A member of the RNA family "mir-9256 microRNA precursor family" from Pipistrellus kuhlii, 67 nucleotides long.

[Rfam]
RNA sequence: UUAUAUACUGAGUGGCAAGAUUAUUAUGAUCUCUGAACCCAUAAUAAUCUUGCCACUCAGUGUGUAU
Numbered sequence: 001u002u003a004u005a006u007a008c009u010g011a012g013u014g015g016c017a018a019g020a021u022u023a024u025u026a027u028g029a030u031c032u033c034u035g036a037a038c039c040c041a042u043a044a045u046a047a048u049c050u051u052g053c054c055a056c057u058c059a060g061u062g063u064g065u066a067u
Stems, first nucleotide, its partner, number of pairs: 004064014019049010
Record summary
The match comes from Rfam's covariance-model search (85 bits).